[Rfam]
RNA sequence: UGGGACGGCUUUUUUAUUGCUUUCUAAAACGGAGUUUUAGUAUAAAAUUUUUUAAUUUUGUACUGAAACUCCGUUUUAGAAAGCAAUAAAAAGCCGUCCCA
Numbered sequence: 001u002g003g004g005a006c007g008g009c010u011u012u013u014u015u016a017u018u019g020c021u022u023u024c025u026a027a028a029a030c031g032g033a034g035u036u037u038u039a040g041u042a043u044a045a046a047a048u049u050u051u052u053u054a055a056u057u058u059u060g061u062a063c064u065g066a067a068a069c070u071c072c073g074u075u076u077u078a079g080a081a082a083g084c085a086a087u088a089a090a091a092a093g094c095c096g097u098c099c100c101a
Base pairs, nucleotide, nucleotide: 001101002100003099004098005097006096007095008094009093012092013091014089015088016087017086018085019084020083021082022081023080024079025078026077027076028075029074030073031072032071033070034069035068036067037066040063041062042061043060044059045058046057

Shown here is a 101-nucleotide RNA from Dendrobium nobile, a member of the family "MIR1888 microRNA precursor family". Its family is annotated with RISC complex and miRNA-mediated post-transcriptional gene silencing in the Gene Ontology. The family's consensus secondary structure was predicted with RNAalifold. The family has 2 seed sequences and 44 matches in Rfam 15.1.